small nucleolar RNA snoR143: a 170-nucleotide sequence from Lupinus angustifolius. On this family, see Chen and Wu, Nucleic Acids Res 2009: "Mining small RNA sequencing data: a new approach to identify small nucleolar RNAs in Arabidopsis". Rfam links the family to the GO terms nucleolus and RNA processing. NCBI's taxonomy places the organism under Eukaryota, Streptophyta, Tracheophyta, Pentapetalae, Lupinus. The match comes from Rfam's covariance-model search (68 bits). By type it is an H/ACA-box small nucleolar RNA.

Nucleotides: 170
Stems, first nucleotide, its partner, number of pairs: 004058003009052003014048004020044008108164001110162005116157001127146001129142002
Number, partner (000 for none) and nucleotide at each position: 001000u002000u003000c004058u005057a006056a007000u008000g009052a010051a011050c012000a013000u014048g015047u016046u017045c018000c019000u020044c021043u022042u023041u024040u025039u026038u027037g028000u029000u030000u031000u032000u033000c034000u035000a036000a037027c038026a039025g040024a041023a042022a043021a044020g045017g046016a047015a048014c049000u050011g051010u052009u053000u054000u055000a056006u057005u058004a059000a060000u061000u062000g063000g064000a065000a066000a067000u068000a069000u070000u071000g072000u073000u074000u075000g076000u077000g078000u079000u080000g081000u082000a083000a084000u085000u086000g087000g088000a089000c090000a091000g092000c093000g094000g095000c096000c097000a098000g099000a100000c101000a102000a103000c104000c105000g106000u107000a108164g109000a110162g111161a112160u113159g114158g115000u116157a117000u118000c119000c120000a121000c122000a123000g124000g125000u126000g127146g128000u129142g130141g131000g132000u133000u134000u135000u136000u137000u138000c139000a140000c141130u142129c143000a144000c145000u146127c147000g148000u149000c150000u151000a152000c153000u154000g155000a156000u157116u158114c159113c160112a161111u162110c163000c164108c165000a166000c167000a168000u169000u170000u